[Rfam]
Rfam assigns this 100-nucleotide RNA from Clostridium thailandense to the family "Purine riboswitch aptamer". Lineage of the source: Bacteria > Clostridia > Eubacteriales > Clostridiaceae > Clostridium. The base pairs follow the family's consensus structure, which is taken from published work.
RNA sequence: AAAAAUAUAUAAAUGCUAUCUUGUAUAUAUUGGAAAUUGGUCUAAUAGUCUCUACCGGGUUGCCGUAAACUACCUGACUACAAGAAUAACCUCAAGCUAU
Numbered sequence: 001a002a003a004a005a006u007a008u009a010u011a012a013a014u015g016c017u018a019u020c021u022u023g024u025a026u027a028u029a030u031u032g033g034a035a036a037u038u039g040g041u042c043u044a045a046u047a048g049u050c051u052c053u054a055c056c057g058g059g060u061u062g063c064c065g066u067a068a069a070c071u072a073c074c075u076g077a078c079u080a081c082a083a084g085a086a087u088a089a090c091c092u093c094a095a096g097c098u099a100u
Stems, first nucleotide, its partner, number of pairs: 019085007028047007056076005062070001